[Rfam]
RNA sequence: GUGUGACCCCACGGGGGCCUCCGGCAGGAGGCUGAGAUCGGGCUAGGGCCGCUCGAGACCGUUGAACCUGAUCCGGUUGAUACCGGCGGAGGAAGAGAGGAUCGCAGAUGA
Numbered sequence: 001g002u003g004u005g006a007c008c009c010c011a012c013g014g015g016g017g018c019c020u021c022c023g024g025c026a027g028g029a030g031g032c033u034g035a036g037a038u039c040g041g042g043c044u045a046g047g048g049c050c051g052c053u054c055g056a057g058a059c060c061g062u063u064g065a066a067c068c069u070g071a072u073c074c075g076g077u078u079g080a081u082a083c084c085g086g087c088g089g090a091g092g093a094a095g096a097g098a099g100g101a102u103c104g105c106a107g108a109u110g111a
Stems, first nucleotide, its partner, number of pairs: 008097001010095001011062004017032005039055005067092003073086004